[Rfam]
RNA sequence: GGGGGAGGAUGAGUUCUGGUGUUCUCUCUAGUCUUCAAAACUAGUACGAGGGGUUAGGAGCCUCUUAGGUGGGUUCGAUUCCCACCCUUUCCC
Dot-bracket structure: ((((((((..(((..(....)..))).(((((.......)))))...((((.........)))).....((((.......))))).)))))))
The family of this 93-nucleotide RNA from Intestinibacter bartlettii is "Selenocysteine transfer RNA". The base pairs follow the family's consensus structure, which is taken from published work. A search with the family's covariance model found it, with a score of 64 bits.